[Rfam]
RNA sequence: GGUCAGUGAUGAAUAGUAAAAGGUCUGAUGCCCAGGUUUCCUCAAGCUUCCCUUUAGCUCCCAGAAGCCCCUGUUCUAAUCUCAACAUGCUCUAGGUGUGCAGUGUUGGGUUCCGGGGGCGUCUGACAGAUAGGAUGACCUCUCAGCCUGUAUGUCCUAGAGAACAAAGGGUUUUGGUGAUGAUGGACAUCCGACAUAGCCAAUUUACAAGGAGUAUCAGGGUCUGGGGCAAAAGCCGGCAAAUGAUCUCAAGUUUUCAAGCUGAGACC
Numbered sequence: 001g002g003u004c005a006g007u008g009a010u011g012a013a014u015a016g017u018a019a020a021a022g023g024u025c026u027g028a029u030g031c032c033c034a035g036g037u038u039u040c041c042u043c044a045a046g047c048u049u050c051c052c053u054u055u056a057g058c059u060c061c062c063a064g065a066a067g068c069c070c071c072u073g074u075u076c077u078a079a080u081c082u083c084a085a086c087a088u089g090c091u092c093u094a095g096g097u098g099u100g101c102a103g104u105g106u107u108g109g110g111u112u113c114c115g116g117g118g119g120c121g122u123c124u125g126a127c128a129g130a131u132a133g134g135a136u137g138a139c140c141u142c143u144c145a146g147c148c149u150g151u152a153u154g155u156c157c158u159a160g161a162g163a164a165c166a167a168a169g170g171g172u173u174u175u176g177g178u179g180a181u182g183a184u185g186g187a188c189a190u191c192c193g194a195c196a197u198a199g200c201c202a203a204u205u206u207a208c209a210a211g212g213a214g215u216a217u218c219a220g221g222g223u224c225u226g227g228g229g230c231a232a233a234a235g236c237c238g239g240c241a242a243a244u245g246a247u248c249u250c251a252a253g254u255u256u257u258c259a260a261g262c263u264g265a266g267a268c269c
Stems, first nucleotide, its partner, number of pairs: 001269004034249005040229005046223002058214004062125004067120002081110008090100001133192005139186001149177001152174001154172005
Rfam assigns this 269-nucleotide sequence from Albula goreensis to the family "Small Cajal body specific RNA 6".
Taxonomically the source falls in Albula (Eukaryota, Chordata, Euteleostomi, Albulidae).
U88 is small Cajal body specific RNA (scaRNA). scaRNAs are a novel class of small nuclear RNAs which localise to the Cajal bodies. U88 is found associated with both fibrillarin and Gar1p and co-localises with coilin in Cajal bodies.
For this family Rfam cites "RNomics: an experimental approach that identifies 201 candidates for novel, small, non-messenger RNAs in mouse" (Huttenhofer et al., EMBO J, 2001).